[Rfam]
A member of the RNA family "Purine riboswitch aptamer" from Clostridiaceae bacterium 14S0207, 98 nucleotides long. It scores 64 bits against the family's covariance model. The base pairs follow the family's consensus structure, which is taken from published work. About the family: Riboswitches are metabolite binding domains within certain messenger RNAs that serve as precision sensors for their corresponding targets. Allosteric rearrangement of mRNA structure is mediated by ligand binding, and this results in modulation of gene expression. A class of riboswitches that selectively recognises guanine and becomes saturated at concentrations as low as 5 nM. In Bacillus subtilis, this mRNA motif is located on at least five separate transcriptional units that together encode 17 genes that are mostly involved in purine transport and purine nucleotide biosynthesis. The organism belongs to Clostridiaceae, within Bacteria.
RNA sequence: GAAAAAUUGCAUAAAUCUUUUCAUAUAAUCCUUUGAUAUGGUGGGGAGUCUCUACAAGAAACCGAAAAUUUCUAACUAUGGAAAGAGCAUUUAGUGUA
Numbered sequence: 001g002a003a004a005a006a007u008u009g010c011a012u013a014a015a016u017c018u019u020u021u022c023a024u025a026u027a028a029u030c031c032u033u034u035g036a037u038a039u040g041g042u043g044g045g046g047a048g049u050c051u052c053u054a055c056a057a058g059a060a061a062c063c064g065a066a067a068a069u070u071u072c073u074a075a076c077u078a079u080g081g082a083a084a085g086a087g088c089a090u091u092u093a094g095u096g097u098a
Base pairs, nucleotide, nucleotide: 018084019083020082021081022080023079024078025077029047030046031045032044033043057073058072059071060070061069